[Rfam]
RNA sequence: ACACAUACAGAAGGAGCUUUGUUACGAGCACUCAGUGCUCCUUUUUGCUGUUCUCGACUCUUUGGCGACCUGUCUACGAAAGCGCUGGGUACUCAAUGGAUGUUGGCCCAGGAACCCGAAUUCGAUGGUCGACAGGCAGUUCCUCGAGGAUGAAGCUCUCGUCAAGUCGGAAGUAGUGUCGGGACCCAUCUCGAGUUGGAGUCAGAGUUUCGUACUUGUCUGACACUGCGGAUGGCAAGACGACGUGGCAAGACCUCAGAGCCUUGUGUUGGACAUCGGACUGGGAGCUCAAUUAUUGGAUUUCAAGGGCAGGCCGUUUGGAAGAGGCAGCCCUGGUUGUCCUCGUGCCAGAAAUGGUAGGAGGACAACCCCCCAUGGAGAGG
Number, nucleotide and partner (000 for none) at each position: 001a000002c000003a000004c000005a000006u000007a000008c000009a000010g000011a000012a000013g000014g000015a000016g000017c000018u000019u000020u000021g000022u000023u000024a000025c000026g000027a000028g000029c000030a000031c000032u000033c000034a000035g000036u000037g000038c000039u000040c000041c000042u000043u000044u000045u000046u000047g000048c000049u000050g000051u000052u000053c000054u000055c000056g000057a000058c000059u000060c000061u000062u000063u000064g000065g000066c000067g000068a000069c000070c000071u000072g000073u000074c000075u000076a000077c000078g000079a000080a000081a000082g000083c000084g000085c000086u000087g000088g000089g000090u000091a000092c000093u000094c000095a000096a000097u000098g000099g000100a000101u000102g000103u000104u000105g000106g000107c000108c000109c000110a000111g000112g000113a000114a000115c000116c000117c000118g000119a000120a000121u000122u000123c000124g000125a000126u000127g000128g000129u000130c000131g000132a000133c000134a000135g000136g000137c000138a000139g000140u000141u000142c000143c000144u000145c000146g000147a000148g000149g000150a000151u000152g000153a000154a000155g000156c000157u000158c000159u000160c000161g000162u000163c000164a000165a000166g000167u000168c000169g000170g000171a000172a000173g000174u000175a000176g000177u000178g000179u000180c000181g000182g000183g203184a202185c201186c199187c198188a197189u000190c000191u000192c000193g000194a000195g000196u000197u188198g187199g186200a000201g185202u184203c183204a000205g217206a216207g215208u214209u000210u000211c000212g000213u000214a208215c207216u206217u205218g000219u000220c000221u000222g000223a000224c000225a000226c000227u000228g000229c000230g000231g000232a000233u000234g000235g000236c000237a000238a000239g000240a000241c000242g000243a000244c000245g000246u000247g000248g000249c000250a000251a000252g000253a000254c000255c000256u000257c000258a000259g000260a000261g000262c000263c000264u000265u000266g000267u000268g000269u000270u000271g000272g000273a000274c000275a000276u000277c000278g000279g000280a000281c000282u000283g000284g000285g000286a000287g000288c000289u000290c000291a000292a000293u000294u000295a000296u000297u000298g000299g000300a000301u000302u000303u000304c000305a000306a000307g000308g000309g000310c000311a000312g000313g000314c000315c000316g000317u000318u000319u000320g000321g000322a000323a000324g000325a000326g000327g000328c000329a000330g000331c000332c000333c000334u000335g000336g000337u000338u000339g000340u000341c000342c000343u000344c000345g000346u000347g000348c000349c000350a000351g000352a000353a000354a000355u000356g000357g000358u000359a000360g000361g000362a000363g000364g000365a000366c000367a000368a000369c000370c000371c000372c000373c000374c000375a000376u000377g000378g000379a000380g000381a000382g000383g000
Source information:
The family of this 383-nucleotide part of an RNA from Tolypocladium paradoxum is "Ascomycota telomerase RNA". NCBI's taxonomy places the organism under Eukaryota, saccharomyceta, leotiomyceta, sordariomyceta, Tolypocladium. Rfam links the family to the GO terms telomerase catalytic core complex, telomere maintenance via telomerase and telomerase activity.